A member of the RNA family "Bacillaceae-1 RNA" from Lentibacillus cibarius, 67 nucleotides long. Taxonomically the source falls in Lentibacillus (Bacteria, Bacillati, Caryophanales, Bacillaceae). By type it is a small RNA. It scores 36 bits against the family's covariance model.
[Rfam]
RNA sequence: AAUUAAGGAAGUUCUACUAAAUACGUUCACGUCUGUGAACAACACAGAACGAUAUUCAUCCAGAAGG
Number, nucleotide and partner (000 for none) at each position: 001a000002a000003u000004u000005a000006a000007g000008g000009a000010a000011g050012u049013u048014c047015u046016a000017c000018u000019a000020a000021a000022u000023a000024c000025g000026u039027u038028c037029a036030c035031g000032u000033c000034u000035g030036u029037g028038a027039a026040c000041a000042a000043c000044a000045c000046a015047g014048a013049a012050c011051g000052a000053u067054a000055u065056u064057c063058a000059u000060c000061c000062a000063g057064a056065a055066g000067g053